[Rfam]
RNA sequence: CGGCGCCUUACGCCGUCCGGUGGAUGGCUCGGCUCGGGCGCCGAGGAAGGGCGCGGCAAGCGGCGAUAUGCCCGGGGUAGGCGCAUGCAGCCGCUGAACCCGGGAUCCCCGAAUGGGACCUCCUGCACGGGGUUAACAGCCCCGUGCGUCCCGUAAGGGACGGGAACGCCCCGAACGGAAACAUCUUAGUAGGGGCAGGAAGAGAAAUCAAUCGAGAUCCCCUGAGUAGGGGCGACCGAAAGGGGGAGAGCCCAAACCAAUUCCCUGCGGGAUAACCGCGGGGAGAUGAGGGGUCGCUGCCUUCGCGGCUGGGGGCAACCCCAGCGGGCCGAGCCGCGGUAGCCGAAGAGGCCUGGAAAGGCCCGCCGUAGAGGGUGAUAGCCCCGUAGGCGAAACCGCGGUGGCCCGCGCCGCGAAGGAGAGUACUGCGGCCUAGUUUCGCCGUAGGAAGGUGGGGGUCACCGACCUCCAAGGCUAAACACGUCCCGAGACCGAUAGCGAACUAAGUACCGUGAGGGAAAGCUGAAAAGGACCCCGGGUAGGGGUGUGAAAAGAGCCUGAAACCGGGCGGCUAUAAAG
Numbered sequence: 001c002g003g004c005g006c007c008u009u010a011c012g013c014c015g016u017c018c019g020g021u022g023g024a025u026g027g028c029u030c031g032g033c034u035c036g037g038g039c040g041c042c043g044a045g046g047a048a049g050g051g052c053g054c055g056g057c058a059a060g061c062g063g064c065g066a067u068a069u070g071c072c073c074g075g076g077g078u079a080g081g082c083g084c085a086u087g088c089a090g091c092c093g094c095u096g097a098a099c100c101c102g103g104g105a106u107c108c109c110c111g112a113a114u115g116g117g118a119c120c121u122c123c124u125g126c127a128c129g130g131g132g133u134u135a136a137c138a139g140c141c142c143c144g145u146g147c148g149u150c151c152c153g154u155a156a157g158g159g160a161c162g163g164g165a166a167c168g169c170c171c172c173g174a175a176c177g178g179a180a181a182c183a184u185c186u187u188a189g190u191a192g193g194g195g196c197a198g199g200a201a202g203a204g205a206a207a208u209c210a211a212u213c214g215a216g217a218u219c220c221c222c223u224g225a226g227u228a229g230g231g232g233c234g235a236c237c238g239a240a241a242g243g244g245g246g247a248g249a250g251c252c253c254a255a256a257c258c259a260a261u262u263c264c265c266u267g268c269g270g271g272a273u274a275a276c277c278g279c280g281g282g283g284a285g286a287u288g289a290g291g292g293g294u295c296g297c298u299g300c301c302u303u304c305g306c307g308g309c310u311g312g313g314g315g316c317a318a319c320c321c322c323a324g325c326g327g328g329c330c331g332a333g334c335c336g337c338g339g340u341a342g343c344c345g346a347a348g349a350g351g352c353c354u355g356g357a358a359a360g361g362c363c364c365g366c367c368g369u370a371g372a373g374g375g376u377g378a379u380a381g382c383c384c385c386g387u388a389g390g391c392g393a394a395a396c397c398g399c400g401g402u403g404g405c406c407c408g409c410g411c412c413g414c415g416a417a418g419g420a421g422a423g424u425a426c427u428g429c430g431g432c433c434u435a436g437u438u439u440c441g442c443c444g445u446a447g448g449a450a451g452g453u454g455g456g457g458g459u460c461a462c463c464g465a466c467c468u469c470c471a472a473g474g475c476u477a478a479a480c481a482c483g484u485c486c487c488g489a490g491a492c493c494g495a496u497a498g499c500g501a502a503c504u505a506a507g508u509a510c511c512g513u514g515a516g517g518g519a520a521a522g523c524u525g526a527a528a529a530g531g532a533c534c535c536c537g538g539g540u541a542g543g544g545g546u547g548u549g550a551a552a553a554g555a556g557c558c559u560g561a562a563a564c565c566g567g568g569c570g571g572c573u574a575u576a577a578a579g
Stems, first nucleotide, its partner, number of pairs: 012572009026558001027523002031493002033490006039483002049110003052065003071104006080092003115124003149160004167198001168196005178185002208215002219246005229237002249476004257291002267279004304415004326407004342391003348364001350363004367371001373385003426447007454470005510517002
The record is a 579-nucleotide part of an RNA from Acidilobus saccharovorans, which matches "Archaeal large subunit ribosomal RNA" in Rfam. Gene Ontology terms of the family: ribosome and structural constituent of ribosome.